[Rfam]
RNA sequence: AAAUAGGCUGCGUUAGGGAUUGAAACGGCAUCCUUUAUUAUAAAAAAAUGCGAUAGCAUUUAUGUAUAAUAAAGAUAUAGUGUAAAGCCCGCCCGAAC
Numbered sequence: 001a002a003a004u005a006g007g008c009u010g011c012g013u014u015a016g017g018g019a020u021u022g023a024a025a026c027g028g029c030a031u032c033c034u035u036u037a038u039u040a041u042a043a044a045a046a047a048a049u050g051c052g053a054u055a056g057c058a059u060u061u062a063u064g065u066a067u068a069a070u071a072a073a074g075a076u077a078u079a080g081u082g083u084a085a086a087g088c089c090c091g092c093c094c095g096a097a098c
Stems, first nucleotide, its partner, number of pairs: 016090003020086002025081002030076003036071007

This 98-nucleotide RNA from Tenacibaculum todarodis belongs to the Rfam family "Flavo-1 RNA". NCBI's taxonomy places the organism under Bacteria, Pseudomonadati, Flavobacteriia, Flavobacteriales, Tenacibaculum. The base pairs follow the family's consensus structure, which is taken from published work. By type it is a small RNA.